Shown here is a 69-nucleotide RNA sequence from Pseudolycoriella hygida, a member of the family "mir-375 microRNA precursor family". NCBI's taxonomy places the organism under Eukaryota, Eumetazoa, Protostomia, Arthropoda, Pseudolycoriella. Its family is annotated with miRNA-mediated post-transcriptional gene silencing and RISC complex in the Gene Ontology. The literature on the family includes a 2005 paper in Genes Dev by Chen et al., "The developmental miRNA profiles of zebrafish as determined by small RNA cloning".
[Rfam]
RNA sequence: AAUUACUUAAGCCAAUCGAAUUAAACUUUCCUAUUUCAAUUUAGUUUGUUCGUUUGGCUUGAGUUAUCC
Numbered sequence: 001a002a003u004u005a006c007u008u009a010a011g012c013c014a015a016u017c018g019a020a021u022u023a024a025a026c027u028u029u030c031c032u033a034u035u036u037c038a039a040u041u042u043a044g045u046u047u048g049u050u051c052g053u054u055u056g057g058c059u060u061g062a063g064u065u066a067u068c069c
Stems, first nucleotide, its partner, number of pairs: 002067002005064009017052002022048003026044002